[Rfam]
RNA sequence: UAACUGGACGCUUUAGCUAUUGAACUGUUUCGUCACUCUUUGUCAAAGAACAAAUUGAUAUCUGUCAGAGAGUGAGAAAACAGUUCAAUAGCUAAAGGGUCCAGUAAC
Numbered sequence: 001u002a003a004c005u006g007g008a009c010g011c012u013u014u015a016g017c018u019a020u021u022g023a024a025c026u027g028u029u030u031c032g033u034c035a036c037u038c039u040u041u042g043u044c045a046a047a048g049a050a051c052a053a054a055u056u057g058a059u060a061u062c063u064g065u066c067a068g069a070g071a072g073u074g075a076g077a078a079a080a081c082a083g084u085u086c087a088a089u090a091g092c093u094a095a096a097g098g099g100u101c102c103a104g105u106a107a108c
Stems, first nucleotide, its partner, number of pairs: 001107001003105004011097018029069002032066001034064002049059001051057002

The record is a 108-nucleotide RNA from Plutella xylostella, which matches "mir-8517 microRNA precursor family" in Rfam. Rfam links the family to the GO terms miRNA-mediated post-transcriptional gene silencing and RISC complex. Lineage of the source: Eukaryota > Protostomia > Mandibulata > Neoptera > Plutella. A search with the family's covariance model found it, with a score of 95 bits.